[Rfam]
RNA sequence: CUGCUGGUUAAAUGAUGUGAAUCAUGUCUCUUCUCUGAAAAAUAUUUGGAGAAAGUUUUUAAUUCUCUGAUUCAGCAG
Numbered sequence: 001c002u003g004c005u006g007g008u009u010a011a012a013u014g015a016u017g018u019g020a021a022u023c024a025u026g027u028c029u030c031u032u033c034u035c036u037g038a039a040a041a042a043u044a045u046u047u048g049g050a051g052a053a054a055g056u057u058u059u060u061a062a063u064u065c066u067c068u069g070a071u072u073c074a075g076c077a078g
Base pairs, nucleotide, nucleotide: 001078002077003076004075005074
Rfam assigns this 78-nucleotide RNA sequence from Scyliorhinus torazame to the family "Small nucleolar RNA SNORD111". By type it is a C/D-box small nucleolar RNA. The source organism's lineage runs through Eukaryota, Gnathostomata, Elasmobranchii, Selachii and Scyliorhinus. Rfam links the family to the GO terms nucleolus and RNA processing. A search with the family's covariance model found it, with a score of 46 bits. The base pairs follow the family's consensus structure, which was predicted with RNAalifold.